[Rfam]
Nucleotides: 155
Stems, first nucleotide, its partner, number of pairs: 031055009136148004
Number, partner (000 for none) and nucleotide at each position: 001000g002000c003000c004000g005000g006000u007000u008000c009000a010000g011000u012000g013000a014000c015000a016000c017000a018000a019000a020000g021000g022000g023000u024000u025000c026000a027000g028000u029000a030000u031055a032054a033053a034052g035051c036050c037049c038048c039047g040000u041000g042000u043000a044000g045000a046000u047039u048038g049037g050036g051035g052034c053033u054032u055031u056000u057000u058000c059000g060000u061000u062000u063000u064000u065000g066000g067000c068000g069000a070000g071000u072000a073000c074000u075000c076000a077000a078000u079000u080000u081000g082000a083000g084000c085000c086000g087000u088000u089000c090000c091000u092000g093000g094000a095000a096000g097000g098000a099000c100000a101000u102000u103000g104000c105000a106000a107000a108000a109000a110000c111000g112000a113000u114000u115000c116000a117000g118000c119000u120000u121000a122000u123000g124000g125000u126000g127000u128000u129000u130000u131000u132000u133000a134000c135000u136148g137147g138146g139145c140000u141000u142000u143000u144000a145139g146138c147137c148136c149000u150000u151000u152000u153000u154000u155000u